[Rfam]
RNA sequence: AGUGAGUUAGUAGUUCGCUGAGUAACUGAAGGGUGCAUUAUUUGUACCAGCAAGCUUGCCUUGUGGGAUCCUUCAGUCAGGGGAAAGCUCACUUUUUU
Numbered sequence: 001a002g003u004g005a006g007u008u009a010g011u012a013g014u015u016c017g018c019u020g021a022g023u024a025a026c027u028g029a030a031g032g033g034u035g036c037a038u039u040a041u042u043u044g045u046a047c048c049a050g051c052a053a054g055c056u057u058g059c060c061u062u063g064u065g066g067g068a069u070c071c072u073u074c075a076g077u078c079a080g081g082g083g084a085a086a087g088c089u090c091a092c093u094u095u096u097u098u
Base pairs, nucleotide, nucleotide: 001093002092003091004090005089006088007087016081018080019079020078021077026076027075028074029073030072031071032048033047034046035045036044037043051063052062053061054060

DUF3800-VII RNA: a 98-nucleotide RNA sequence. The family's RNA type in Rfam is small RNA. Rfam's curators put it in the seed alignment. The family's consensus secondary structure is taken from published work.